[Rfam]
RNA sequence: UGGAAGUAUCAUACGUGUGUAAAUUUUUUUUAUAUUUUACACAUCACUAUGCUUCCUAUAUGAUAAGUGCUUUCUGAUGACCCCAGUUGGAUGAAGUUUUGGACUGAGGACAGAUACGAAGCCAACAAUA
Numbered sequence: 001u002g003g004a005a006g007u008a009u010c011a012u013a014c015g016u017g018u019g020u021a022a023a024u025u026u027u028u029u030u031u032a033u034a035u036u037u038u039a040c041a042c043a044u045c046a047c048u049a050u051g052c053u054u055c056c057u058a059u060a061u062g063a064u065a066a067g068u069g070c071u072u073u074c075u076g077a078u079g080a081c082c083c084c085a086g087u088u089g090g091a092u093g094a095a096g097u098u099u100u101g102g103a104c105u106g107a108g109g110a111c112a113g114a115u116a117c118g119a120a121g122c123c124a125a126c127a128a129u130a
Stems, first nucleotide, its partner, number of pairs: 002056006015044004022037002025034001069122005081109002086104003

The family of this 130-nucleotide sequence from Psylliodes chrysocephalus is "Small Cajal body specific RNA 8". The source organism's lineage runs through Eukaryota, Panarthropoda, Altocrustacea, Galerucinae and Psylliodes. A search with the family's covariance model found it, with a score of 54 bits. From the family's description: scaRNAs are a specific class of small nuclear RNAs which localise to the Cajal bodies and guide the modification of RNA polymerase II transcribed spliceosomal RNAs U1, U2, U4, U5 and U12. U92 belong to the H/ACA box class of guide RNAs as it has the predicted hairpin-hinge-hairpin-tail structure, conserved H/ACA-box motifs and is found associated with GAR1.